[Rfam]
RNA sequence: GCAGGCUAUGCGGGAGAGACCUCGGCGGUUCGCCGACGAGGCGCCGACGGAGCAACACCCCAGGAAACUCUCAGGCAAAAGGACCGCGUAGCUGGA
Numbered sequence: 001g002c003a004g005g006c007u008a009u010g011c012g013g014g015a016g017a018g019a020c021c022u023c024g025g026c027g028g029u030u031c032g033c034c035g036a037c038g039a040g041g042c043g044c045c046g047a048c049g050g051a052g053c054a055a056c057a058c059c060c061c062a063g064g065a066a067a068c069u070c071u072c073a074g075g076c077a078a079a080a081g082g083a084c085c086g087c088g089u090a091g092c093u094g095g096a
Stems, first nucleotide, its partner, number of pairs: 006091008020041004043076003046072002050070003056063001
RNA: Glycine riboswitch aptamer